[Rfam]
RNA: c-di-GMP-I riboswitch aptamer
RNA sequence: CAUUCGAAAGGGCAACUGUUCCGUAAGGGGCAGAGCGCAAAGCUUUCGUGCCUAAUUUCUGUCACAGGAGAAAGGCGGACGGGCUGCCGAG
Numbered sequence: 001c002a003u004u005c006g007a008a009a010g011g012g013c014a015a016c017u018g019u020u021c022c023g024u025a026a027g028g029g030g031c032a033g034a035g036c037g038c039a040a041a042g043c044u045u046u047c048g049u050g051c052c053u054a055a056u057u058u059c060u061g062u063c064a065c066a067g068g069a070g071a072a073a074g075g076c077g078g079a080c081g082g083g084c085u086g087c088c089g090a091g
Stems, first nucleotide, its partner, number of pairs: 012038002017032006041085004047081003050076003057070004
Dot-bracket structure: ...........((...((((((....))))))....))..((((..((((((....((((......))))...)))..)))))))......